[Rfam]
RNA: Bacillaceae-1 RNA
RNA sequence: CAAAUUAGAAGGUCGACUAAUGUCGCCACGUCCUGUGGCAACGUCGACACUAGCAUGUCAUGUGCA
Numbered sequence: 001c002a003a004a005u006u007a008g009a010a011g012g013u014c015g016a017c018u019a020a021u022g023u024c025g026c027c028a029c030g031u032c033c034u035g036u037g038g039c040a041a042c043g044u045c046g047a048c049a050c051u052a053g054c055a056u057g058u059c060a061u062g063u064g065c066a
Stems, first nucleotide, its partner, number of pairs: 012048006025039005053065004